Shown here is a 328-nucleotide sequence from Mesotoga prima, a member of the family "Bacterial RNase P class A". Rfam classes the family as a ribozyme. NCBI's taxonomy places the organism under Bacteria, Kosmotogales, Kosmotogaceae, Mesotoga, Mesotoga prima.
RNA sequence: GAAGCGAAAAGAGUGACCGCGGAAAAUCCGAGGAAAGUCCGGACUCCAUGGGCAGGGGCGCUGGGUAACACCCAGGGAGAGUGAUCUCCGGAAAGGGCCAUAGAAAAUUAGACCGCCUUCGGGCAAGGAUGGAAAGGUGAGGUAAGAGCUCACCGGCUGUCGGGUGACCGGCAGGUCAGGUAACCCCCGUCUGGAGCAAGUCCAAGCAGAAAGGGUCUGAGGAUGCCCACCGAUUCCCUUUCGGGUAGGAUGCUUGAGGGUCAUGGUAACAUAACUCCGAGAUAGAUGGUCACGAGAACAGGAUCCGGCUUACGUUUUCGCUUCCCGG
Dot-bracket structure: (((((((((((.((((((.((((...))))....[[[.[[[[[((((...[....((((((((((.....)))))(((((....)))))((...(((((.............(((((....)))..)).......((((((.......))))))(.(((((((....))))))).)..)))..)))))))))))))...((((.......(((((.....((.((....])).)).)))))......))))......((((.(((....))).))))..........))))))..........]]]]]]]].).))))))))))....